[Rfam]
RNA sequence: CGCAGUGACACGGGGUGCGCCGCAUCGGCGCUGAGAUCACACCCGUCGAACCUGAUCUAGUUCGGACUAGCGAAGGGAUGUCCCGAAUGAGCGCG
Numbered sequence: 001c002g003c004a005g006u007g008a009c010a011c012g013g014g015g016u017g018c019g020c021c022g023c024a025u026c027g028g029c030g031c032u033g034a035g036a037u038c039a040c041a042c043c044c045g046u047c048g049a050a051c052c053u054g055a056u057c058u059a060g061u062u063c064g065g066a067c068u069a070g071c072g073a074a075g076g077g078a079u080g081u082c083c084c085g086a087a088u089g090a091g092c093g094c095g
Base pairs, nucleotide, nucleotide: 007082008081009080010079011045012044013043014042016039017031018030019029020028021027051076052075053074057070058069059068060067
RNA: TPP riboswitch aptamer (THI element)